[Rfam]
RNA sequence: CUCAAUAGCCGGAGCUCUCCGGAACAAAGAAAGUCACCCGGUUCAGGGUA
Numbered sequence: 001c002u003c004a005a006u007a008g009c010c011g012g013a014g015c016u017c018u019c020c021g022g023a024a025c026a027a028a029g030a031a032a033g034u035c036a037c038c039c040g041g042u043u044c045a046g047g048g049u050a
Stems, first nucleotide, its partner, number of pairs: 009022005036049004
RNA: RAGATH-25 RNA